[Rfam]
RNA: Ruegeria cis2 sRNA
Organism: Antarcticimicrobium sediminis
RNA sequence: GUUGCUGUUCAGCGGGUUGUAAUUGAGAAAGACAAAGCCGCGCGACUGGUCGAUGGUAUGAAACAGCGGGUUCCAUGAAAAGAUCGGCAGCAUGAAAGCGGGCAGCGUAUUGGCCAGAAACAUCUUGCCCGAGGCGAUCAUGUUAGCGCGCUG
Numbered sequence: 001g002u003u004g005c006u007g008u009u010c011a012g013c014g015g016g017u018u019g020u021a022a023u024u025g026a027g028a029a030a031g032a033c034a035a036a037g038c039c040g041c042g043c044g045a046c047u048g049g050u051c052g053a054u055g056g057u058a059u060g061a062a063a064c065a066g067c068g069g070g071u072u073c074c075a076u077g078a079a080a081a082g083a084u085c086g087g088c089a090g091c092a093u094g095a096a097a098g099c100g101g102g103c104a105g106c107g108u109a110u111u112g113g114c115c116a117g118a119a120a121c122a123u124c125u126u127g128c129c130c131g132a133g134g135c136g137a138u139c140a141u142g143u144u145a146g147c148g149c150g151c152u153g
Stems, first nucleotide, its partner, number of pairs: 002035003006032001008030002013025003037057004041052002064153005071081002086147001089144006099133001101130002103127003107123002110119002